[Rfam]
RNA sequence: GCUUCCGUUGGUGCAAACCCAACACCUGAAUUUCAGAUUUCAGACGAGAAACAAUUCUCCAUUGAUAGCAAACGGUUAUCCAUUAAGCGGAGAAAAUCUUAU
Numbered sequence: 001g002c003u004u005c006c007g008u009u010g011g012u013g014c015a016a017a018c019c020c021a022a023c024a025c026c027u028g029a030a031u032u033u034c035a036g037a038u039u040u041c042a043g044a045c046g047a048g049a050a051a052c053a054a055u056u057c058u059c060c061a062u063u064g065a066u067a068g069c070a071a072a073c074g075g076u077u078a079u080c081c082a083u084u085a086a087g088c089g090g091a092g093a094a095a096a097u098c099u100u101a102u
Stems, first nucleotide, its partner, number of pairs: 008022004057092004061083002064080006
RNA: Plastid-rps12 3UTR RNA